A member of the RNA family "Small nucleolar RNA SNORD19" from Geotrypetes seraphini, 71 nucleotides long. Gene Ontology terms of the family: RNA processing and nucleolus. The match comes from Rfam's covariance-model search (42 bits). Clan: SNORD19 clan. A reference for the family is Huttenhofer et al. (2001), "RNomics: an experimental approach that identifies 201 candidates for novel, small, non-messenger RNAs in mouse", EMBO J. NCBI's taxonomy places the organism under Eukaryota, Deuterostomia, Teleostomi, Amphibia, Geotrypetes. The family has 22 seed sequences and 1,431 matches in Rfam 15.1.

RNA sequence: AAGAAGUGAGGAUAUUAAUGUUAUCUGAUACCAGUGAAGACUGUCAGAUCCAACUCUGAUCUUGCUCUGCA
Dot-bracket structure: ((((.......................................................))))........